[Rfam]
Notes
A member of the RNA family "SAM (S-adenosyl methionine) riboswitch aptamer" from Xylanimonas protaetiae, 113 nucleotides long. It scores 85 bits against the family's covariance model. NCBI's taxonomy places the organism under Bacteria, Bacillati, Actinomycetes, Promicromonosporaceae, Xylanimonas. Rfam links the family to the GO terms regulation of gene expression and S-adenosylmethionine metabolic process.
RNA sequence: GGUCAUGAGCUCCGACGUUCAGCCCCGGCUUGUCGGACGGCAACCCCCCGCGUGGGUGGGUGCCCCGGGUGAGGACCAGGUUCGCCGGCACCGUCGGCGAGACAACACGCGAA
Numbered sequence: 001g002g003u004c005a006u007g008a009g010c011u012c013c014g015a016c017g018u019u020c021a022g023c024c025c026c027g028g029c030u031u032g033u034c035g036g037a038c039g040g041c042a043a044c045c046c047c048c049c050g051c052g053u054g055g056g057u058g059g060g061u062g063c064c065c066c067g068g069g070u071g072a073g074g075a076c077c078a079g080g081u082u083c084g085c086c087g088g089c090a091c092c093g094u095c096g097g098c099g100a101g102a103c104a105a106c107a108c109g110c111g112a113a
Base pairs, nucleotide, nucleotide: 001077002076003075004074009038011037012036013035014034015033016032021030022029039064040063041062044060045059046058048055049054080103081102082100083099084098085097086096087095088094089093
Dot-bracket structure: ((((....(.((((((....((......)).)))))))(((..(((.((....))..))).))).........))))..((((((((((...)))))))).))..........